RNA sequence: CGAUGUUCUCGGGGCGGGGUGAAAAUCCCCACCGGCGGUGAUGUCGCAUGACCUUGUUUUCAAGGUUCUUGCGACGAGCCCGCGAGCGCUUGGCGGACGCCCGUCCGUCAAGGUCAGCAGACCUGGUGAGAUCCCGGGGCCGACGGUCAUAGUCCGGAUGAAAGAGAACGGAA
Numbered sequence: 001c002g003a004u005g006u007u008c009u010c011g012g013g014g015c016g017g018g019g020u021g022a023a024a025a026u027c028c029c030c031a032c033c034g035g036c037g038g039u040g041a042u043g044u045c046g047c048a049u050g051a052c053c054u055u056g057u058u059u060u061c062a063a064g065g066u067u068c069u070u071g072c073g074a075c076g077a078g079c080c081c082g083c084g085a086g087c088g089c090u091u092g093g094c095g096g097a098c099g100c101c102c103g104u105c106c107g108u109c110a111a112g113g114u115c116a117g118c119a120g121a122c123c124u125g126g127u128g129a130g131a132u133c134c135c136g137g138g139g140c141c142g143a144c145g146g147u148c149a150u151a152g153u154c155c156g157g158a159u160g161a162a163a164g165a166g167a168a169c170g171g172a173a
Base pairs, nucleotide, nucleotide: 004170005169006168007167008166009165010164017029018028019027031153032152033142034141035083036082037081038080086118087117122138123137124136125135126134144156145155146154
RNA: FMN riboswitch aptamer (RFN element)
Organism: Herbaspirillum sp. meg3